[Rfam]
RNA: Glycine riboswitch aptamer
RNA sequence: AACACCCGCGCGGGAGAGACCACGGACACGUGGCGCCGAAGGGGCAAAUCCUCCCCGGAACCUCUCAGGCAAAAGGACCGCGUGGGCAGG
Dot-bracket structure: .....((((((((......((((......)))).(((((..(((....(.......)....))))).))).......)))))))).....